Glycine riboswitch aptamer: a 101-nucleotide sequence from Dialister sp. CAG:357. Taxonomically the source falls in Dialister (Bacteria, Negativicutes, Veillonellales, Veillonellaceae).

RNA sequence: GGACACAUCUCUGGAGAGCUCCGCUGAAACGAUGCGGACGCCGAAGGUGCUAAGGGAUCACCGAUCCCGAAUCUCUCAGGCAAAAGGACAGGGCUGGCAGC
Numbered sequence: 001g002g003a004c005a006c007a008u009c010u011c012u013g014g015a016g017a018g019c020u021c022c023g024c025u026g027a028a029a030c031g032a033u034g035c036g037g038a039c040g041c042c043g044a045a046g047g048u049g050c051u052a053a054g055g056g057a058u059c060a061c062c063g064a065u066c067c068c069g070a071a072u073c074u075c076u077c078a079g080g081c082a083a084a085a086g087g088a089c090a091g092g093g094c095u096g097g098c099a100g101c
Stems, first nucleotide, its partner, number of pairs: 006096002009093005020038004040081003043077002047075001049073001054068006